RNA sequence: GCGGAAGGCUGGAUGGUCGCUGCGCGGUGCAAGCCGCGGGGAGGAAAGUCCGGACUCCAGAAAGUGACGGUGCCGGGUAACGCCCGGGCGGGGCAACCCGACGGAAAGCGCCACAGAAAUGAAACCACCCCGCGUGCGGGGAACGGGUGAAACGGUGGGGUAAAAGCCCACCGCGGCGGUGGCAACAUCGCCGGCAGGGCAAGCCCCACCGGGAGCAAUGCCAAAUAGGGACCGCGUGCCGGGAAACCGGCGGGGAGGCUUUGACCCCAGCAGGUCCGGGUUGGCAGCUAGAGGCGCGUCGGCAACGGCGGGCCAAGAUGAAUGACCAUCCACGGGGGGCGUGCCCCCUGGGACAGAAUCCGGCUUACAGGCCUUCCGCACAC
Numbered sequence: 001g002c003g004g005a006a007g008g009c010u011g012g013a014u015g016g017u018c019g020c021u022g023c024g025c026g027g028u029g030c031a032a033g034c035c036g037c038g039g040g041g042a043g044g045a046a047a048g049u050c051c052g053g054a055c056u057c058c059a060g061a062a063a064g065u066g067a068c069g070g071u072g073c074c075g076g077g078u079a080a081c082g083c084c085c086g087g088g089c090g091g092g093g094c095a096a097c098c099c100g101a102c103g104g105a106a107a108g109c110g111c112c113a114c115a116g117a118a119a120u121g122a123a124a125c126c127a128c129c130c131c132g133c134g135u136g137c138g139g140g141g142a143a144c145g146g147g148u149g150a151a152a153c154g155g156u157g158g159g160g161u162a163a164a165a166g167c168c169c170a171c172c173g174c175g176g177c178g179g180u181g182g183c184a185a186c187a188u189c190g191c192c193g194g195c196a197g198g199g200c201a202a203g204c205c206c207c208a209c210c211g212g213g214a215g216c217a218a219u220g221c222c223a224a225a226u227a228g229g230g231a232c233c234g235c236g237u238g239c240c241g242g243g244a245a246a247c248c249g250g251c252g253g254g255g256a257g258g259c260u261u262u263g264a265c266c267c268c269a270g271c272a273g274g275u276c277c278g279g280g281u282u283g284g285c286a287g288c289u290a291g292a293g294g295c296g297c298g299u300c301g302g303c304a305a306c307g308g309c310g311g312g313c314c315a316a317g318a319u320g321a322a323u324g325a326c327c328a329u330c331c332a333c334g335g336g337g338g339g340c341g342u343g344c345c346c347c348c349u350g351g352g353a354c355a356g357a358a359u360c361c362g363g364c365u366u367a368c369a370g371g372c373c374u375u376c377c378g379c380a381c382a383c
Stems, first nucleotide, its partner, number of pairs: 001379010011368001012330007020041002023038006046366003050363005055215004063261002068211005073087005088102001089100004103206002108204002110200003125146002128141005154172006173195001174193008219286004229277005254266002294313002297310005
Bacterial RNase P class A: a 383-nucleotide RNA sequence from Sulfitobacter albidus.
The match comes from Rfam's covariance-model search (276 bits).
The family's consensus secondary structure is taken from published work.
The family's RNA type in Rfam is ribozyme.
Taxonomically the source falls in Sulfitobacter (Bacteria, Pseudomonadota, Alphaproteobacteria, Roseobacteraceae).